[Rfam]
Nucleotides: 116
Base pairs, nucleotide, nucleotide: 001029002028003027077116078115079114080113081112088111089110091108094105095104096103097102
Number, partner (000 for none) and nucleotide at each position: 001029c002028g003027g004000u005000a006000u007000u008000g009000a010000a011000g012000a013000c014000c015000a016000g017000g018000c019000g020000g021000a022000u023000a024000a025000g026000g027003c028002c029001g030000c031000c032000c033000a034000c035000a036000c037000a038000a039000g040000u041000a042000a043000u044000g045000a046000u047000u048000a049000a050000c051000u052000u053000c054000a055000u056000u057000g058000a059000u060000g061000a062000u063000g064000a065000a066000a067000a068000g069000a070000a071000a072000a073000a074000g075000u076000a077116u078115g079114g080113g081112g082000u083000c084000g085000a086000g087000u088111c089110a090000a091108u092000c093000u094105g095104c096103a097102g098000a099000a100000u101000a102097c103096u104095g105094c106000c107000a108091a109000u110089u111088g112081c113080c114079c115078c116077a